[Rfam]
RNA: Glycine riboswitch aptamer
Organism: Caldisalinibacter kiritimatiensis
RNA sequence: AUGAGAAAUGCGGGAGAGACCCUAUAUGGGCGCCGAAGGAGUAAGUUAUUGGUUGUGCCGACUAGUAAUGAAACUCUCAGGCAAAAGGACCGCAUUUUGACA
Numbered sequence: 001a002u003g004a005g006a007a008a009u010g011c012g013g014g015a016g017a018g019a020c021c022c023u024a025u026a027u028g029g030g031c032g033c034c035g036a037a038g039g040a041g042u043a044a045g046u047u048a049u050u051g052g053u054u055g056u057g058c059c060g061a062c063u064a065g066u067a068a069u070g071a072a073a074c075u076c077u078c079a080g081g082c083a084a085a086a087g088g089a090c091c092g093c094a095u096u097u098u099g100a101c102a
Stems, first nucleotide, its partner, number of pairs: 006097008020030003032082003035078002039076003045069011